RNA sequence: GAUGUGAGAUAUGGCUGUAUAUCGGCACGGCUGUGAUUCGGCCGUAGGUAAUCACAGCCGUGCCGAUAUACAGCCAUAUCUCAUGUCU
Numbered sequence: 001g002a003u004g005u006g007a008g009a010u011a012u013g014g015c016u017g018u019a020u021a022u023c024g025g026c027a028c029g030g031c032u033g034u035g036a037u038u039c040g041g042c043c044g045u046a047g048g049u050a051a052u053c054a055c056a057g058c059c060g061u062g063c064c065g066a067u068a069u070a071c072a073g074c075c076a077u078a079u080c081u082c083a084u085g086u087c088u
Base pairs, nucleotide, nucleotide: 005083006082007081008080009079010078011077012076013075014074015073016072017071018070019069020068021067023065024064025063026062027061028060029059030058031057032056033055034054035053
Shown here is an 88-nucleotide sequence from Sinocyclocheilus rhinocerous, a member of the family "mir-31 microRNA precursor family". The match comes from Rfam's covariance-model search (57 bits). The literature on the family includes a 2003 paper in Dev Cell by Aravin et al., "The small RNA profile during Drosophila melanogaster development". Rfam links the family to the GO terms gene silencing by miRNA and RISC complex.